RNA sequence: AGCUUUGCGCAGUGGCAGUAUCGUAGCCAAUGAGGUUUAUCCGAGGCGCGAUUAUUGCUAAUUGAAAACUUUUCCCAAUACCCCGCCGUGACGACCUGGAACAUGGUCGGCGUUGGCAAUUUUUGGCAGCUCCUCCGGGUG
Dot-bracket structure: ...................(((((.(((.....((.....))..))))))))................................((((((.(((((........))))).))).)))............(.((....)).)